[Rfam]
RNA sequence: UGAGCAGUUAUACACAACUCGUACGGCAGUGGCGGGGGAACCAAUAUCGGGUCGUUAGCUUUGGCUAAUAACCCUAGGGGUGAAGUGGAUAGAGAAGGAAACUUCAAAUCCACCGAGGUAACUCCACUUCGAACCCGACAGCUUACCUCGUAGGUAUCAAGGAGAGGCAUU
Numbered sequence: 001u002g003a004g005c006a007g008u009u010a011u012a013c014a015c016a017a018c019u020c021g022u023a024c025g026g027c028a029g030u031g032g033c034g035g036g037g038g039a040a041c042c043a044a045u046a047u048c049g050g051g052u053c054g055u056u057a058g059c060u061u062u063g064g065c066u067a068a069u070a071a072c073c074c075u076a077g078g079g080g081u082g083a084a085g086u087g088g089a090u091a092g093a094g095a096a097g098g099a100a101a102c103u104u105c106a107a108a109u110c111c112a113c114c115g116a117g118g119u120a121a122c123u124c125c126a127c128u129u130c131g132a133a134c135c136c137g138a139c140a141g142c143u144u145a146c147c148u149c150g151u152a153g154g155u156a157u158c159a160a161g162g163a164g165a166g167g168c169a170u171u
Stems, first nucleotide, its partner, number of pairs: 011156003018031001020029001032151006042077001078136003086112004115130004

Background
c-di-AMP riboswitch aptamer (ydaO/yuaA leader): a 171-nucleotide RNA from Arthrobacter sp. NIO-1057. It scores 64 bits against the family's covariance model. Pairs were carried over by alignment from the consensus structure. Rfam's curators write: This family represents a conserved RNA structure found upstream of the ydaO and yuaA genes in Bacillus subtilis and related genes in other bacteria. The source organism's lineage runs through Bacteria, Bacillati, Actinomycetes, Micrococcales and Arthrobacter.